[Rfam]
RNA sequence: AGUAUUACAGGAAAUGGUGUCUUCCUGCUGAAACCGCCCUGCUCAGGGAUGAUGGCGCCUAUUUAGGU
Numbered sequence: 001a002g003u004a005u006u007a008c009a010g011g012a013a014a015u016g017g018u019g020u021c022u023u024c025c026u027g028c029u030g031a032a033a034c035c036g037c038c039c040u041g042c043u044c045a046g047g048g049a050u051g052a053u054g055g056c057g058c059c060u061a062u063u064u065a066g067g068u
Stems, first nucleotide, its partner, number of pairs: 010025004016059006037048003
Shown here is a 68-nucleotide RNA sequence from Dyadobacter helix, a member of the family "Fluoride riboswitch aptamer (crcB RNA motif)".
The match comes from Rfam's covariance-model search (44 bits).
The family's consensus secondary structure is taken from published work.